[Rfam]
RNA sequence: GCUUUUAAAGGAUAACAGCUAUCCCUUGGUCUUAGGAUCCAAAAAUUUUGGUGCAACUCCAAAUAAAAGUA
Number, nucleotide and partner (000 for none) at each position: 001g070002c069003u068004u067005u066006u065007a064008a000009a000010g024011g023012a022013u021014a000015a000016c000017a000018g000019c000020u000021a013022u012023c011024c010025c000026u042027u041028g040029g039030u000031c000032u000033u000034a000035g000036g000037a000038u000039c029040c028041a027042a026043a000044a000045a000046u000047u063048u062049u061050g060051g059052u000053g000054c000055a000056a000057c000058u000059c051060c050061a049062a048063a047064u007065a006066a005067a004068a003069g002070u001071a000